[Rfam]
RNA: MIR2670 microRNA precursor family
RNA sequence: UCGGGGUAAAAUAGUGAGUAGCCGACUUGGGGAAGUGAUCAACUCUUAGGAUAAGUUUAAAUCUGUUUUUUUUUACUCCAUAAACUUUUUACUGUGGGUAAAAAUAUUCUUGUUGGGGUAUAAAAAAAUAAAAUAAAAAAAAAGAUUUAAAUUUAGCCCAAGGAUUGGUGAUGUAUUUUCCCCAAGAAGGCUCACUAUUUUACCCUAA
Number, nucleotide and partner (000 for none) at each position: 001u000002c000003g206004g205005g204006g203007u202008a201009a200010a199011a198012u197013a196014g195015u194016g193017a192018g000019u000020a000021g191022c190023c189024g000025a000026c186027u185028u184029g183030g182031g181032g180033a179034a178035g177036u000037g000038a172039u171040c170041a169042a165043c000044u163045c000046u161047u160048a000049g158050g157051a000052u155053a154054a153055g152056u000057u150058u149059a148060a147061a146062u145063c144064u143065g000066u000067u000068u000069u000070u000071u000072u000073u000074u120075a119076c118077u117078c116079c115080a114081u000082a000083a000084a000085c000086u104087u103088u102089u101090u100091a099092c098093u097094g000095u000096g000097g093098g092099u091100a090101a089102a088103a087104a086105u000106a000107u000108u000109c000110u000111u000112g000113u000114u080115g079116g078117g077118g076119u075120a074121u000122a000123a000124a000125a000126a000127a000128a000129u000130a000131a000132a000133a000134u000135a000136a000137a000138a000139a000140a000141a000142a000143a064144g063145a062146u061147u060148u059149a058150a057151a000152u055153u054154u053155a052156g000157c050158c049159c000160a047161a046162g000163g044164a000165u042166u000167g000168g000169u041170g040171a039172u038173g000174u000175a000176u000177u035178u034179u033180c032181c031182c030183c029184a028185a027186g026187a000188a000189g023190g022191c021192u017193c016194a015195c014196u013197a012198u011199u010200u009201u008202a007203c006204c005205c004206u003207a000208a000